[Rfam]
RNA sequence: GCCGACUUGAUUCUGGCUGGUGUCAGGACUUGGCUUCAGUCCAAGGGGCAUGGGGACAUGCAGGAGUUCGAUCCUCCCUGGUCGGC
Number, nucleotide and partner (000 for none) at each position: 001g086002c085003c084004g083005a082006c081007u080008u000009g078010a000011u000012u027013c026014u025015g024016g023017c022018u000019g000020g000021u000022g017023u016024c015025a014026g013027g012028a000029c045030u044031u043032g042033g041034c000035u000036u000037c000038a000039g000040u000041c033042c032043a031044a030045g029046g000047g000048g061049c060050a059051u058052g057053g000054g000055g000056a000057c052058a051059u050060g049061c048062a000063g077064g076065a075066g074067u000068u000069c000070g000071a000072u000073c000074c066075u065076c064077c063078c009079u000080g007081g006082u005083c004084g003085g002086c001
RNA: Selenocysteine transfer RNA
Organism: Cladocopium goreaui